[Rfam]
Background:
This 596-nucleotide part of an RNA from Trichuris suis belongs to the Rfam family "Eukaryotic small subunit ribosomal RNA". It is one of the family's seed sequences.

RNA sequence: CAUAUGCUUGUCUCAAAGACUAAGCCAUGCAAGUGCAAGCGCACACCGCUGAACGGUGAAGCCGCGAAUGGCUCAUUACAGCAGUCAUUGUUCGCAAGAACUGAUGUCACUUGGAUAACUGUGGAAAUUCUAGAGCUAAUACUGCCUCGAAGCUCGGUCGCGCGCAACGCUCGGAGCGCAUUUAUUAGAACAAAACCAAUCGGACGCAGGCUAUCUAUUGGUCUGGGUCCGCGAAAGGUUGGUGAAUCGGAAUAACUAUGCUGAUCGCACGGUCCAGCACCGGCGACGAACUUUGAAAUGACUUGCUCAUCAACUUUCGAUGGUACGCUACGUGCUUACCAUGGUGACAACGGUUAACGGAGAAUCAGGGUUCGACUCCGGAGAGGGAGCCUGAGAAACGGCUACCACAUCCAAGGAAGGCAGCAGGCACGCAAAUUACCCACUCCCAGAUCGGGGAGGUAGUGACGAAAAAUAACGGAACGUAUCUCCAUGAGACGCGUUACCGGAACGACUGAGCCGUACACAAGCUCGGCUAAAUCUAUUGGAGGGCAAGUCUGGUGCCAGCAGCCGCGGUAAUUCCAGCUCCAAUAGCGUAU
Number, nucleotide and partner (000 for none) at each position: 001c000002a596003u595004a594005u593006g592007c591008u590009u000010g000011u470012c000013u468014c467015a000016a000017a463018g430019a000020c000021u000022a000023a000024g428025c427026c426027a000028u425029g424030c423031a000032a000033g065034u064035g000036c000037a000038a000039g062040c061041g000042c000043a000044c000045a057046c056047c000048g000049c000050u000051g000052a000053a000054c000055g000056g046057u045058g000059a000060a000061g040062c039063c000064g034065c033066g000067a000068a000069u000070g000071g000072c383073u382074c381075a000076u000077u000078a000079c000080a000081g000082c000083a303084g302085u000086c000087a299088u298089u000090g000091u297092u296093c000094g000095c000096a000097a292098g291099a000100a000101c000102u000103g000104a000105u000106g000107u000108c000109a000110c000111u144112u000113g142114g000115a000116u000117a000118a000119c135120u134121g000122u132123g131124g130125a000126a000127a000128u000129u000130c124131u123132a122133g000134a120135g119136c000137u000138a000139a000140u000141a000142c113143u000144g111145c000146c000147u000148c000149g000150a000151a000152g177153c176154u175155c174156g172157g000158u000159c169160g168161c000162g000163c000164g000165c000166a000167a000168c160169g159170c000171u000172c156173g000174g155175a154176g153177c152178g000179c000180a000181u000182u255183u254184a253185u252186u251187a000188g000189a000190a000191c000192a000193a000194a000195a243196c242197c241198a240199a000200u000201c000202g000203g000204a000205c000206g000207c000208a000209g000210g000211c000212u000213a222214u221215c220216u000217a000218u000219u000220g215221g214222u213223c000224u000225g000226g000227g000228u000229c000230c000231g000232c000233g000234a000235a000236a000237g000238g000239u000240u198241g197242g196243u195244g000245a000246a000247u000248c000249g000250g000251a186252a185253u184254a183255a182256c000257u000258a000259u000260g000261c000262u000263g000264a000265u286266c285267g284268c283269a000270c282271g281272g280273u279274c000275c000276a000277g000278c000279a273280c272281c271282g270283g268284c267285g266286a265287c000288g000289a000290a000291c098292u097293u000294u000295g000296a092297a091298a088299u087300g000301a000302c084303u083304u000305g000306c000307u353308c352309a000310u000311c000312a000313a345314c344315u343316u000317u000318c000319g000320a342321u341322g340323g339324u338325a337326c000327g335328c000329u000330a000331c000332g000333u000334g000335c327336u000337u325338a324339c323340c322341a321342u320343g315344g314345u313346g000347a000348c000349a000350a000351c000352g308353g307354u000355u000356a000357a000358c380359g379360g378361a377362g373363a372364a371365u370366c000367a000368g000369g000370g365371u364372u363373c362374g000375a000376c000377u361378c360379c359380g358381g074382a073383g072384a000385g406386g405387g000388a403389g402390c401391c000392u000393g000394a000395g000396a000397a000398a000399c000400g000401g390402c389403u388404a000405c386406c385407a000408c419409a000410u417411c416412c000413a000414a000415g000416g411417a410418a000419g408420g000421c000422a000423g030424c029425a028426g026427g025428c024429a000430c018431g000432c000433a000434a000435a000436u461437u000438a460439c459440c458441c000442a000443c000444u456445c455446c454447c453448a000449g000450a000451u000452c000453g447454g446455g445456g444457a000458g440459g439460u438461a436462g000463u017464g000465a000466c000467g014468a013469a000470a011471a000472a000473u000474a000475a000476c505477g504478g503479a501480a500481c499482g498483u497484a000485u495486c494487u493488c492489c000490a000491u000492g488493a487494g486495a485496c000497g483498c482499g481500u480501u479502a000503c478504c477505g476506g000507a000508a000509c000510g000511a000512c532513u531514g529515a000516g528517c527518c000519g000520u000521a000522c000523a000524c000525a000526a000527g517528c516529u514530c000531g513532g512533c000534u000535a000536a000537a000538u000539c000540u000541a000542u588543u587544g586545g585546a584547g583548g000549g000550c000551a000552a000553g000554u000555c582556u581557g580558g579559u000560g000561c000562c000563a000564g571565c570566a000567g000568c000569c000570g565571c564572g000573g000574u000575a000576a000577u000578u000579c558580c557581a556582g555583c547584u546585c545586c544587a543588a542589u000590a008591g007592c006593g005594u004595a003596u002